[Rfam]
Nucleotides: 098
Stems, first nucleotide, its partner, number of pairs: 004092005009084006015076001017075003022070001024068006035060003043052003
Number, partner (000 for none) and nucleotide at each position: 001000u002000u003000u004092c005091g006090g007089g008088u009084c010083c011082c012081g013080c014079g015076c016000g017075u018074c019073c020000a021000a022070g023000g024068g025067c026066u027065c028064a029063c030000g031000a032000a033000c034000c035060c036059c037058g038000c039000c040000a041000g042000g043052g044051u045050a046000g047000a048000g049000a050045u051044a052043c053000a054000g055000c056000a057000a058037c059036g060035g061000u062000a063029g064028u065027g066026a067025g068024u069000u070022u071000g072000c073019g074018g075017a076015g077000u078000g079014u080013g081012c082011g083010g084009g085000g086000a087000a088008a089007c090006u091005c092004g093000a094000a095000a096000g097000c098000c
The record is a 98-nucleotide sequence from Chloracidobacterium thermophilum, which matches "Bacterial small signal recognition particle RNA" in Rfam. On this family, see Rosenblad et al., Nucleic Acids Res 2003: "SRPDB: Signal Recognition Particle Database". The signal recognition particle (SRP) is a universally conserved ribonucleoprotein involved in the co-translational targeting of proteins to membranes. By type it is a non-coding RNA gene. Lineage of the source: Bacteria > Blastocatellia > Chloracidobacteriales > Chloracidobacterium > Chloracidobacterium thermophilum. The match comes from Rfam's covariance-model search (58 bits).